RNA sequence: GCGGUGGGAAGUUCACUGUAGAGGUUACAAUCUGAGUGUUGAUAGAUCAUCCAAUCACUUCGGGGAAGGCGUGAGACAAGAGCCAAUCGCUGUCUUCACAGGACAUCAUCUGAACAGGUGAGCGCGUGCACAGGAAAGAGGGGUCAGAAUGCGGUGUUCACGCACAAGGCGGUGGUACGCAGAAUAGCGAACCAACUGAUGCGAACCCCGUUGACUUGGAAACACUCGCGGCUGGCGCAAUCAGUUCAAUGUGUGAACUGGCACAAGGUGCUAGAACCCAAUUCAGACUACUCUCCUACCAC
Numbered sequence: 001g002c003g004g005u006g007g008g009a010a011g012u013u014c015a016c017u018g019u020a021g022a023g024g025u026u027a028c029a030a031u032c033u034g035a036g037u038g039u040u041g042a043u044a045g046a047u048c049a050u051c052c053a054a055u056c057a058c059u060u061c062g063g064g065g066a067a068g069g070c071g072u073g074a075g076a077c078a079a080g081a082g083c084c085a086a087u088c089g090c091u092g093u094c095u096u097c098a099c100a101g102g103a104c105a106u107c108a109u110c111u112g113a114a115c116a117g118g119u120g121a122g123c124g125c126g127u128g129c130a131c132a133g134g135a136a137a138g139a140g141g142g143g144u145c146a147g148a149a150u151g152c153g154g155u156g157u158u159c160a161c162g163c164a165c166a167a168g169g170c171g172g173u174g175g176u177a178c179g180c181a182g183a184a185u186a187g188c189g190a191a192c193c194a195a196c197u198g199a200u201g202c203g204a205a206c207c208c209c210g211u212u213g214a215c216u217u218g219g220a221a222a223c224a225c226u227c228g229c230g231g232c233u234g235g236c237g238c239a240a241u242c243a244g245u246u247c248a249a250u251g252u253g254u255g256a257a258c259u260g261g262c263a264c265a266a267g268g269u270g271c272u273a274g275a276a277c278c279c280a281a282u283u284c285a286g287a288c289u290a291c292u293c294u295c296c297u298a299c300c301a302c
Stems, first nucleotide, its partner, number of pairs: 001302001003300002007296003012257005021061004034052001036050003072285004081233004091105005106121006122229003126225003143215005258274007